The family of this 208-nucleotide sequence from Rhodobacteraceae bacterium WD3A24 is "permuted transfer-messenger RNA". The match comes from Rfam's covariance-model search (151 bits). The organism belongs to Paracoccaceae, within Bacteria. The family's consensus secondary structure is taken from published work. Gene Ontology term of the family: RNA catabolic process. By type it is a non-coding RNA gene.
RNA sequence: GGCGAUAAACGCGCACGGAAUAAGCGGAUCGGACCCGGGGGCGGUACCCGGCGGCUCCACCAGAUCACCCGCGUUGGGGGGCAUGGGGCCGAAACAGGAUCGACGAACGUGUAAAGGUGUUGCUUUCGCCCGGUGAGCUACCACCGUUAUCGGUGCACAAAGUACAGUUGCCAACGACAACCGUGCUCCGGUCGCCGUUGCUGCGUAA
Dot-bracket structure: (((((.......((((........((..(((...(((((.......)))))(((((((..........................)))))))............))).)).......)))).....)))))((((........))))..............................................................
Numbered sequence: 001g002g003c004g005a006u007a008a009a010c011g012c013g014c015a016c017g018g019a020a021u022a023a024g025c026g027g028a029u030c031g032g033a034c035c036c037g038g039g040g041g042c043g044g045u046a047c048c049c050g051g052c053g054g055c056u057c058c059a060c061c062a063g064a065u066c067a068c069c070c071g072c073g074u075u076g077g078g079g080g081g082c083a084u085g086g087g088g089c090c091g092a093a094a095c096a097g098g099a100u101c102g103a104c105g106a107a108c109g110u111g112u113a114a115a116g117g118u119g120u121u122g123c124u125u126u127c128g129c130c131c132g133g134u135g136a137g138c139u140a141c142c143a144c145c146g147u148u149a150u151c152g153g154u155g156c157a158c159a160a161a162g163u164a165c166a167g168u169u170g171c172c173a174a175c176g177a178c179a180a181c182c183g184u185g186c187u188c189c190g191g192u193c194g195c196c197g198u199u200g201c202u203g204c205g206u207a208a
Stems, first nucleotide, its partner, number of pairs: 001130005013120004025109002029106003035051005052091007131146004